This 104-nucleotide RNA from Paenibacillus sp. FSL R7-0331 belongs to the Rfam family "Purine riboswitch aptamer".
NCBI's taxonomy places the organism under Bacteria, Bacilli, Caryophanales, Paenibacillaceae, Paenibacillus.
A search with the family's covariance model found it, with a score of 72 bits.
Pairs were carried over by alignment from the consensus structure, which is taken from published work.
Rfam describes the family as follows. Riboswitches are metabolite binding domains within certain messenger RNAs that serve as precision sensors for their corresponding targets.

RNA sequence: ACGGAUAUUCAUAUAACAACUCAUAUAAUCUUGGGAAUAUGGCCCAUAAGUUUCUACCGGAUAACCACUGCAAAUAUCCGACUAUGAGUGAAAUAGCGCAUCUA
Numbered sequence: 001a002c003g004g005a006u007a008u009u010c011a012u013a014u015a016a017c018a019a020c021u022c023a024u025a026u027a028a029u030c031u032u033g034g035g036a037a038u039a040u041g042g043c044c045c046a047u048a049a050g051u052u053u054c055u056a057c058c059g060g061a062u063a064a065c066c067a068c069u070g071c072a073a074a075u076a077u078c079c080g081a082c083u084a085u086g087a088g089u090g091a092a093a094u095a096g097c098g099c100a101u102c103u104a
Base pairs, nucleotide, nucleotide: 019089020088021087022086023085024084025083029049032046033045034044035043058080059079060078061077062076063075